[Rfam]
RNA: C. elegans snoRNA ceN33
RNA sequence: ACAGCCUCUGGCGCUGCUAAUAGCCAGGCUCAAGGCGGGCGAUGAUUGAUAUAUUUCCCACACGCAAUUUCGUCUGAACGUCAAUGAAGGUUAAACUUCCUUGGACGUCUGAGCCGC
Numbered sequence: 001a002c003a004g005c006c007u008c009u010g011g012c013g014c015u016g017c018u019a020a021u022a023g024c025c026a027g028g029c030u031c032a033a034g035g036c037g038g039g040c041g042a043u044g045a046u047u048g049a050u051a052u053a054u055u056u057c058c059c060a061c062a063c064g065c066a067a068u069u070u071c072g073u074c075u076g077a078a079c080g081u082c083a084a085u086g087a088a089g090g091u092u093a094a095a096c097u098u099c100c101u102u103g104g105a106c107g108u109c110u111g112a113g114c115c116g117c
Base pairs, nucleotide, nucleotide: 009116010115011114012113
Dot-bracket structure: ........((((....................................................................................................)))).